[Rfam]
RNA sequence: UCAAAAGCGUUGAUCCAGACGAGUAAGCGUCAGGCGGACUCCAGAGAGCCGGGUAAGGUGUGAGCCGGCAGUUGCGCGGGCGUUGAAUGGACUGGGAAGCUGCGGACCGAAAGUUUUGCGAGUAGGCUCCGCCGGGAAGGGCGCCGUUAACCGGCCCAGGGUAUCGUUUUGAUAACCGUACCCGACAAAAGAUGGUUCUUGAGCCGCAGGGCUUUCGAGCCGAACCAGGGUGGCACCGCGAAGUAUUUUGACCUUCGCCCCUAGG
Number, nucleotide and partner (000 for none) at each position: 001u000002c000003a000004a000005a000006a000007g100008c099009g000010u000011u000012g000013a000014u000015c095016c094017a093018g092019a000020c000021g000022a000023g000024u000025a000026a084027g083028c082029g081030u080031c079032a000033g000034g000035c000036g000037g073038a072039c071040u000041c000042c000043a000044g000045a000046g000047a000048g069049c068050c067051g066052g065053g000054u000055a000056a000057g000058g000059u000060g000061u000062g000063a000064g000065c052066c051067g050068g049069c048070a000071g039072u038073u037074g000075c000076g000077c000078g000079g031080g030081c029082g028083u027084u026085g000086a000087a000088u000089g000090g000091a000092c018093u017094g016095g015096g000097a000098a000099g008100c007101u000102g000103c131104g130105g129106a128107c000108c126109g000110a000111a000112a000113g000114u000115u000116u000117u000118g000119c000120g000121a000122g000123u000124a000125g000126g108127c000128u106129c105130c104131g103132c000133c146134g145135g144136g000137a000138a000139g000140g000141g000142c000143g000144c135145c134146g133147u000148u000149a000150a000151c000152c000153g000154g000155c000156c000157c000158a000159g000160g000161g000162u000163a000164u000165c000166g000167u000168u000169u000170u000171g000172a000173u000174a000175a000176c000177c000178g000179u000180a000181c000182c000183c000184g000185a000186c000187a000188a000189a000190a000191g000192a000193u000194g221195g220196u219197u218198c217199u000200u000201g000202a000203g000204c000205c000206g000207c000208a000209g000210g000211g000212c000213u000214u000215u000216c000217g198218a197219g196220c195221c194222g000223a000224a000225c000226c000227a262228g261229g260230g259231u000232g000233g000234c000235a000236c000237c000238g258239c257240g256241a255242a254243g000244u000245a000246u000247u000248u000249u000250g000251a000252c000253c000254u242255u241256c240257g239258c238259c230260c229261c228262u227263a000264g000265g000

Shown here is a 265-nucleotide sequence from Dehalogenimonas alkenigignens, a member of the family "T-box leader". The base pairs follow the family's consensus structure, which is taken from published work. On this family, see Grundy et al., J Bacteriol 1994: "Interaction between the acceptor end of tRNA and the T box stimulates antitermination in the Bacillus subtilis tyrS gene: a new role for the discriminator base". Uncharged tRNA acts as the effector for transcription antitermination of genes in the T-box leader family. T-boxes are found upstream of many aminoacyl-tRNA synthetase genes and some amino acid biosynthetic genes usually in Gram-positive bacteria. The anticodon of a specific tRNA base pairs to a specifier sequence within the T-box motif, and the NCCA acceptor tail of the tRNA base pairs to a conserved bulge in the T-box antiterminator hairpin.